[Rfam]
RNA sequence: ACUACAAACCGGGUUAUCGCUAUGCCGUAAGGCAGAGAGGAAAGUCCGGACAGCACAGAGCAAUGCACCGGUUAAGCGCCGGGUCUGCAGUUAGCUGUACAUGCAGCUCCUGCGGAACAGACAGUGCCACAGAAAAUAACUGCCCUGCACAGGUUCCCUGUGCAAGGUCAAGGUGAAAACGUGGGGUAAGAGCCCACGGCGUUGCAGGGCAACCUGCAGCGGGGGUAAACCUUGCAUGCUGAAAUGCCAUGUAUACCAGUCCAUGAAGUUGCUCGCUUCGUUCACGCAAGUGAAGAUUGGGUGGGUAGGCAGCUAGAGCCGGUCAGUAAUGGCCGGUCCAGAUAAAUGAUAACCAUGCGCUCGUCGCAUACAGGAUCCGGCUUACAGGUUUGUAGUUGAA
Numbered sequence: 001a002c003u004a005c006a007a008a009c010c011g012g013g014u015u016a017u018c019g020c021u022a023u024g025c026c027g028u029a030a031g032g033c034a035g036a037g038a039g040g041a042a043a044g045u046c047c048g049g050a051c052a053g054c055a056c057a058g059a060g061c062a063a064u065g066c067a068c069c070g071g072u073u074a075a076g077c078g079c080c081g082g083g084u085c086u087g088c089a090g091u092u093a094g095c096u097g098u099a100c101a102u103g104c105a106g107c108u109c110c111u112g113c114g115g116a117a118c119a120g121a122c123a124g125u126g127c128c129a130c131a132g133a134a135a136a137u138a139a140c141u142g143c144c145c146u147g148c149a150c151a152g153g154u155u156c157c158c159u160g161u162g163c164a165a166g167g168u169c170a171a172g173g174u175g176a177a178a179a180c181g182u183g184g185g186g187u188a189a190g191a192g193c194c195c196a197c198g199g200c201g202u203u204g205c206a207g208g209g210c211a212a213c214c215u216g217c218a219g220c221g222g223g224g225g226u227a228a229a230c231c232u233u234g235c236a237u238g239c240u241g242a243a244a245u246g247c248c249a250u251g252u253a254u255a256c257c258a259g260u261c262c263a264u265g266a267a268g269u270u271g272c273u274c275g276c277u278u279c280g281u282u283c284a285c286g287c288a289a290g291u292g293a294a295g296a297u298u299g300g301g302u303g304g305g306u307a308g309g310c311a312g313c314u315a316g317a318g319c320c321g322g323u324c325a326g327u328a329a330u331g332g333c334c335g336g337u338c339c340a341g342a343u344a345a346a347u348g349a350u351a352a353c354c355a356u357g358c359g360c361u362c363g364u365c366g367c368a369u370a371c372a373g374g375a376u377c378c379g380g381c382u383u384a385c386a387g388g389u390u391u392g393u394a395g396u397u398g399a400a
Stems, first nucleotide, its partner, number of pairs: 001396010011385001012354007020037002023034004042383003046380005051241004060287002063237005068082005083118001084116007119232002124230002126226003140172002142168003146164007180198006200222001201220008245311004255302003259298001281294005318337008
Bacterial RNase P class A: a 400-nucleotide RNA from Pseudobacter ginsenosidimutans.
A search with the family's covariance model found it, with a score of 244 bits.
The source organism's lineage runs through Bacteria, Pseudomonadati, Bacteroidota, Chitinophagales and Pseudobacter.
By type it is a ribozyme.